[Rfam]
RNA sequence: ACACGAGAAGGGAGGUGGUUCGGAGCAUGAUUUCUUUCCGGACGCGUGAGGUGACUGCGGGCUAGCGCCCGUCGUCGCGUUACAGCGCAACGCCGGGUCCCGAGGCCGUUCGGCCAUGGGGAAGCCGGCCAAUCCCAAGCAGUCACCCGAUCCGUGGGCCGCCGAGUCGUCCGCUCGGCACCGGCGCGCCGUCAAGGCGCGGCCGGUAGCGGGCCCACGGAUCGUCU
Numbered sequence: 001a002c003a004c005g006a007g008a009a010g011g012g013a014g015g016u017g018g019u020u021c022g023g024a025g026c027a028u029g030a031u032u033u034c035u036u037u038c039c040g041g042a043c044g045c046g047u048g049a050g051g052u053g054a055c056u057g058c059g060g061g062c063u064a065g066c067g068c069c070c071g072u073c074g075u076c077g078c079g080u081u082a083c084a085g086c087g088c089a090a091c092g093c094c095g096g097g098u099c100c101c102g103a104g105g106c107c108g109u110u111c112g113g114c115c116a117u118g119g120g121g122a123a124g125c126c127g128g129c130c131a132a133u134c135c136c137a138a139g140c141a142g143u144c145a146c147c148c149g150a151u152c153c154g155u156g157g158g159c160c161g162c163c164g165a166g167u168c169g170u171c172c173g174c175u176c177g178g179c180a181c182c183g184g185c186g187c188g189c190c191g192u193c194a195a196g197g198c199g200c201g202g203c204c205g206g207u208a209g210c211g212g213g214c215c216c217a218c219g220g221a222u223c224g225u226c227u
Base pairs, nucleotide, nucleotide: 015058016057017056018055019054060130061129062128063127065125066124068121069120070119148224149223150222151221152220153219154218155217156216157215158214159213160212161179162178163177164176165175166174
RNA: Actinobacteria sRNA Ms_IGR-5